[Rfam]
A member of the RNA family "c-di-AMP riboswitch aptamer (ydaO/yuaA leader)" from Paenibacillus lutimineralis, 198 nucleotides long. A search with the family's covariance model found it, with a score of 84 bits. Lineage of the source: Bacteria > Bacilli > Caryophanales > Paenibacillaceae > Paenibacillus.
Nucleotides: 198
Base pairs, nucleotide, nucleotide: 011183012182013181014180018039019038020037021036022035023034024033025032026031040178041177042176043175044174045173050101051100102163103162104161110138113135141157142156143155144154
Number, partner (000 for none) and nucleotide at each position: 001000a002000a003000u004000u005000a006000a007000a008000a009000u010000u011183c012182g013181c014180u015000g016000a017000a018039u019038g020037c021036u022035g023034u024033c025032g026031u027000g028000a029000a030000u031026a032025u033024g034023a035022c036021a037020g038019c039018a040178g041177c042176g043175g044174g045173g046000g047000a048000a049000c050101c051100a052000a053000c054000g055000g056000u057000a058000c059000u060000g061000a062000g063000u064000g065000a066000u067000g068000c069000c070000c071000g072000a073000u074000c075000u076000g077000c078000g079000g080000g081000c082000u083000u084000c085000u086000a087000a088000a089000c090000c091000u092000u093000a094000g095000u096000u097000c098000c099000a100051u101050g102163g103162g104161g105000u106000g107000a108000a109000u110138c111000g112000c113135u114000u115000g116000g117000a118000g119000g120000a121000u122000a123000a124000a125000c126000g127000u128000a129000u130000u131000c132000u133000c134000c135113a136000a137000g138110g139000u140000a141157g142156g143155g144154c145000g146000a147000c148000u149000u150000c151000c152000g153000c154144g155143c156142c157141c158000g159000a160000a161104u162103c163102c164000g165000u166000c167000a168000g169000c170000u171000a172000a173045c174044c175043u176042c177041g178040u179000a180014a181013g182012c183011g184000u185000c186000u187000a188000g189000g190000a191000a192000g193000a194000g195000g196000c197000a198000a